This 93-nucleotide RNA from Cephalotus follicularis belongs to the Rfam family "Small nucleolar RNA Z161/Z228". The source organism's lineage runs through Eukaryota, Streptophyta, Embryophyta, Spermatophyta and Cephalotus. Its family is annotated with nucleolus and RNA processing in the Gene Ontology.

[Rfam]
RNA sequence: GAAUCAGAUGAUGAGAUUGGAUUAAAAAUUUCUCACGACGGUCGUCUGAGACACUGUCAAAUCUGAUGUAUUUAUCCAAUGUUUCUGAUGAUU
Numbered sequence: 001g002a003a004u005c006a007g008a009u010g011a012u013g014a015g016a017u018u019g020g021a022u023u024a025a026a027a028a029u030u031u032c033u034c035a036c037g038a039c040g041g042u043c044g045u046c047u048g049a050g051a052c053a054c055u056g057u058c059a060a061a062u063c064u065g066a067u068g069u070a071u072u073u074a075u076c077c078a079a080u081g082u083u084u085c086u087g088a089u090g091a092u093u
Base pairs, nucleotide, nucleotide: 001093002092004090050058051057052056